[Rfam]
RNA: Bacillaceae-1 RNA
Organism: Virgibacillus sp. SK37
RNA sequence: UACAAAGGUUGGAAGGCUAAGGUCGCGACGUCCUGGGGCUGCGCAUACUCGCCCCACCAAACCCCAUUGUCGCAACGCCUUCAUGACCAACUUCGUGUUGG
Numbered sequence: 001u002a003c004a005a006a007g008g009u010u011g012g013a014a015g016g017c018u019a020a021g022g023u024c025g026c027g028a029c030g031u032c033c034u035g036g037g038g039c040u041g042c043g044c045a046u047a048c049u050c051g052c053c054c055c056a057c058c059a060a061a062c063c064c065c066a067u068u069g070u071c072g073c074a075a076c077g078c079c080u081u082c083a084u085g086a087c088c089a090a091c092u093u094c095g096u097g098u099u100g101g
Stems, first nucleotide, its partner, number of pairs: 012082006025073005087101005